A member of the RNA family "Small nucleolar RNA R12" from Raphanus sativus, 81 nucleotides long. Pairs were carried over by alignment from the consensus structure, which was predicted with PFOLD. Rfam links the family to the GO terms nucleolus and RNA processing. NCBI's taxonomy places the organism under Eukaryota, Embryophyta, Euphyllophyta, Brassicaceae, Raphanus. The literature on the family includes a 2003 paper in Nucleic Acids Res by Chen et al., "The high diversity of snoRNAs in plants: identification and comparative study of 120 snoRNA genes from Oryza sativa". Rfam's curators write: snoR12 is a C/D box small nucleolar RNA, which acts as a methylation guide for 25S ribosomal RNA in plants. snoR12 has been alternatively named snoZ44 in Arabidopsis and snoZ131 in rice. The family's RNA type in Rfam is C/D-box small nucleolar RNA. The match comes from Rfam's covariance-model search (52 bits).
Nucleotides: 081
Stems, first nucleotide, its partner, number of pairs: 001081005
Number, partner (000 for none) and nucleotide at each position: 001081g002080u003079g004078a005077g006000g007000g008000u009000g010000a011000u012000g013000a014000a015000c016000a017000a018000a019000a020000a021000a022000a023000c024000a025000u026000a027000u028000c029000g030000g031000a032000u033000g034000u035000c036000c037000c038000a039000a040000u041000g042000a043000u044000a045000a046000a047000a048000a049000u050000a051000u052000g053000u054000g055000a056000u057000u058000a059000c060000g061000u062000a063000c064000c065000a066000g067000c068000u069000a070000c071000u072000u073000u074000u075000g076000a077005c078004u079003c080002a081001u